Description:
Rfam assigns this 114-nucleotide RNA sequence from Priestia koreensis to the family "RNA Staph. aureus E (RoxS)". NCBI's taxonomy places the organism under Bacteria, Bacillota, Caryophanales, Bacillaceae, Priestia. Rfam describes the family as follows. It was shown to be regulated by the presence of nitric oxide (NO). Gene Ontology term of the family: regulation of translational initiation.
RNA sequence: GUGAAGUUUAUCACAAACAAACAUAUACCCCUUUGUUUGACCGUGAAAAAUUUCUCCCAUCCCCUUGUUGUCUUAAGACAAGCAAAAGGACUCGGCGUAAGCCGAGUCCUUUUG
Numbered sequence: 001g002u003g004a005a006g007u008u009u010a011u012c013a014c015a016a017a018c019a020a021a022c023a024u025a026u027a028c029c030c031c032u033u034u035g036u037u038u039g040a041c042c043g044u045g046a047a048a049a050a051u052u053u054c055u056c057c058c059a060u061c062c063c064c065u066u067g068u069u070g071u072c073u074u075a076a077g078a079c080a081a082g083c084a085a086a087a088g089g090a091c092u093c094g095g096c097g098u099a100a101g102c103c104g105a106g107u108c109c110u111u112u113u114g
Base pairs, nucleotide, nucleotide: 003054004053005052006051007050008049011046012045013044014043018039019038020037021036022035023034072082074080086111087110088109089108090107091106092105093104094103095102096101